DUF805b RNA: a 36-nucleotide sequence from Chryseobacterium populi. The organism belongs to Chryseobacterium, within Bacteria. By type it is a cis-regulatory element.
[Rfam]
RNA sequence: UGGGAGGUUGUCGAAAAUCCUUUAAAAGAGUAGGCA
Numbered sequence: 001u002g003g004g005a006g007g008u009u010g011u012c013g014a015a016a017a018u019c020c021u022u023u024a025a026a027a028g029a030g031u032a033g034g035c036a
Stems, first nucleotide, its partner, number of pairs: 002021004010035003

Pairs were carried over by alignment from the consensus structure, which is taken from published work.